[Rfam]
RNA sequence: GCGUCCCGCCUCGUGAUCGUCUUCUCACCCUUCACGACGGCGGGCGAAAGGAAACGGCGGCCCCGCGAGGACAGGACUCGCGGGGCCGCCGC
Numbered sequence: 001g002c003g004u005c006c007c008g009c010c011u012c013g014u015g016a017u018c019g020u021c022u023u024c025u026c027a028c029c030c031u032u033c034a035c036g037a038c039g040g041c042g043g044g045c046g047a048a049a050g051g052a053a054a055c056g057g058c059g060g061c062c063c064c065g066c067g068a069g070g071a072c073a074g075g076a077c078u079c080g081c082g083g084g085g086c087c088g089c090c091g092c
Stems, first nucleotide, its partner, number of pairs: 002046002005044006013035004019029001055091015
RNA: sodF sRNA
Organism: Streptomyces sp. Root264